[Rfam]
RNA sequence: GCAGGUGUAGCACAAUGGUCAGGGCACCAGCCUUCCAAGCUGGGGAUGCGAGUUCGAUUCUCGUCACCUGCU
Numbered sequence: 001g002c003a004g005g006u007g008u009a010g011c012a013c014a015a016u017g018g019u020c021a022g023g024g025c026a027c028c029a030g031c032c033u034u035c036c037a038a039g040c041u042g043g044g045g046a047u048g049c050g051a052g053u054u055c056g057a058u059u060c061u062c063g064u065c066a067c068c069u070g071c072u
Stems, first nucleotide, its partner, number of pairs: 001071007010025002013022001027043005048064005
RNA: tRNA
Organism: Pusillibacter faecalis